[Rfam]
RNA sequence: CCCGUCGCUAUCAGUAACAAGGAUUCAUCCUGUUGUCACCAUAGAAAGCAACAGGAAGUCACUGUUACUGGCCGUGAGGGU
Numbered sequence: 001c002c003c004g005u006c007g008c009u010a011u012c013a014g015u016a017a018c019a020a021g022g023a024u025u026c027a028u029c030c031u032g033u034u035g036u037c038a039c040c041a042u043a044g045a046a047a048g049c050a051a052c053a054g055g056a057a058g059u060c061a062c063u064g065u066u067a068c069u070g071g072c073c074g075u076g077a078g079g080g081u
Stems, first nucleotide, its partner, number of pairs: 011071009022060004029055007037048001